[Rfam]
Overview:
Rfam assigns this 60-nucleotide RNA to the family "terC RNA". By type it is a cis-regulatory element. The sequence is in the family's curated seed alignment.
RNA sequence: UCUGGUGACCGGGCCCCUCUGGCGAGAGAAUGCGGCGCUCUCGCGAUGUCGGCACCCAAA
Numbered sequence: 001u002c003u004g005g006u007g008a009c010c011g012g013g014c015c016c017c018u019c020u021g022g023c024g025a026g027a028g029a030a031u032g033c034g035g036c037g038c039u040c041u042c043g044c045g046a047u048g049u050c051g052g053c054a055c056c057c058a059a060a
Stems, first nucleotide, its partner, number of pairs: 006054002009052004022044007